RNA sequence: GCCACGUCCCACGGGCAGGAGCGGGGGACCCACUUCCCGGGUCCCGAGGUCGUCGCGCGAGCGGCGGCAGAGGGGUCCUUGGGGUGAAGCCGCGACCAGCGGCCGGGAGCAGUUCUCCUCCCGAACCCGACAGCUGACCUCGCAGGC
Numbered sequence: 001g002c003c004a005c006g007u008c009c010c011a012c013g014g015g016c017a018g019g020a021g022c023g024g025g026g027g028a029c030c031c032a033c034u035u036c037c038c039g040g041g042u043c044c045c046g047a048g049g050u051c052g053u054c055g056c057g058c059g060a061g062c063g064g065c066g067g068c069a070g071a072g073g074g075g076u077c078c079u080u081g082g083g084g085u086g087a088a089g090c091c092g093c094g095a096c097c098a099g100c101g102g103c104c105g106g107g108a109g110c111a112g113u114u115c116u117c118c119u120c121c122c123g124a125a126c127c128c129g130a131c132a133g134c135u136g137a138c139c140u141c142g143c144a145g146g147c
Stems, first nucleotide, its partner, number of pairs: 001147003007020003021143006031081002082128003090102004105122004
A member of the RNA family "c-di-AMP riboswitch aptamer (ydaO/yuaA leader)" from Motilibacter rhizosphaerae, 147 nucleotides long. The pairing is the family consensus, mapped onto this sequence. Its family is annotated with cyclic-di-AMP binding and regulation of gene expression in the Gene Ontology. The organism belongs to Motilibacter, within Bacteria.